This 84-nucleotide RNA sequence from Gossypium raimondii belongs to the Rfam family "Plastid-psbM 3UTR RNA".
About the family: Plastid psbM is a non-coding RNA (ncRNA) recognised in plastids.
For this family Rfam cites "Retrograde signaling in plants: A critical review focusing on the GUN pathway and beyond" (Richter et al., Plant Commun, 2023).
It is annotated as a cis-regulatory element.
The match comes from Rfam's covariance-model search (67 bits).
RNA sequence: AACUCGAUAGUAUGGUAGAAAAAAAAUAUGAAUCUUUCUACCAUACUAUCUAUAUCUAUUAUUGUAAUGUAGACCCUCGUAGGG
Numbered sequence: 001a002a003c004u005c006g007a008u009a010g011u012a013u014g015g016u017a018g019a020a021a022a023a024a025a026a027u028a029u030g031a032a033u034c035u036u037u038c039u040a041c042c043a044u045a046c047u048a049u050c051u052a053u054a055u056c057u058a059u060u061a062u063u064g065u066a067a068u069g070u071a072g073a074c075c076c077u078c079g080u081a082g083g084g
Base pairs, nucleotide, nucleotide: 006050007049008048009047010046011045012044013043014042015041016040017039018038019037020036021035023033